[Rfam]
Description
This 319-nucleotide sequence from Anopheles darlingi belongs to the Rfam family "Arthropod 7SK RNA". Its Rfam clan is "7SK clan". It is annotated as a non-coding RNA gene. The family has 19 seed sequences and 229 matches in Rfam 15.1.
RNA sequence: GGAGGUGUGUGUCAAAUCAGUAUGUGAUGGCACGAUAACUGAACAUUGAUCGCCAAAAACAGUUUAGUUUGCAGAUCUGUCCAGUGGCAUGCGUCACACUUCUAAUGGUAGUCAUUCUUCUGUGUCAUCGGUGAUCUCUCGUUGCACAGCGACGGGCCGUACGCACGAUUGAUGUCAUCUGUGACACAAGAUUCUACCGCAUUACGAAAUUAGUUGAAGUUGUAAUUAUACAAGUUAGCUUAGCUUCGGAUUAAAAUUACAUUGUUCAGAACGCUUCCAUAUUACUCGGGCACUGCCGAGCAGUUGGCCCAUUCUUUUG
Numbered sequence: 001g002g003a004g005g006u007g008u009g010u011g012u013c014a015a016a017u018c019a020g021u022a023u024g025u026g027a028u029g030g031c032a033c034g035a036u037a038a039c040u041g042a043a044c045a046u047u048g049a050u051c052g053c054c055a056a057a058a059a060c061a062g063u064u065u066a067g068u069u070u071g072c073a074g075a076u077c078u079g080u081c082c083a084g085u086g087g088c089a090u091g092c093g094u095c096a097c098a099c100u101u102c103u104a105a106u107g108g109u110a111g112u113c114a115u116u117c118u119u120c121u122g123u124g125u126c127a128u129c130g131g132u133g134a135u136c137u138c139u140c141g142u143u144g145c146a147c148a149g150c151g152a153c154g155g156g157c158c159g160u161a162c163g164c165a166c167g168a169u170u171g172a173u174g175u176c177a178u179c180u181g182u183g184a185c186a187c188a189a190g191a192u193u194c195u196a197c198c199g200c201a202u203u204a205c206g207a208a209a210u211u212a213g214u215u216g217a218a219g220u221u222g223u224a225a226u227u228a229u230a231c232a233a234g235u236u237a238g239c240u241u242a243g244c245u246u247c248g249g250a251u252u253a254a255a256a257u258u259a260c261a262u263u264g265u266u267c268a269g270a271a272c273g274c275u276u277c278c279a280u281a282u283u284a285c286u287c288g289g290g291c292a293c294u295g296c297c298g299a300g301c302a303g304u305u306g307g308c309c310c311a312u313u314c315u316u317u318u319g
Stems, first nucleotide, its partner, number of pairs: 001278008024097005039084003043080003048077004052072002055070001289309003292304005